[Rfam]
RNA: mir-43 microRNA precursor family
RNA sequence: CACUGCCCGUGAUAUCAAGGAACUUGUGAUUUAUGCCAUAACUAACAUAACCUCGACAUAUCACAGUUUACUUGCUGUCGCAGGCAGGU
Numbered sequence: 001c002a003c004u005g006c007c008c009g010u011g012a013u014a015u016c017a018a019g020g021a022a023c024u025u026g027u028g029a030u031u032u033a034u035g036c037c038a039u040a041a042c043u044a045a046c047a048u049a050a051c052c053u054c055g056a057c058a059u060a061u062c063a064c065a066g067u068u069u070a071c072u073u074g075c076u077g078u079c080g081c082a083g084g085c086a087g088g089u
Stems, first nucleotide, its partner, number of pairs: 003087005009081006016074004020069005026064005033059003036055001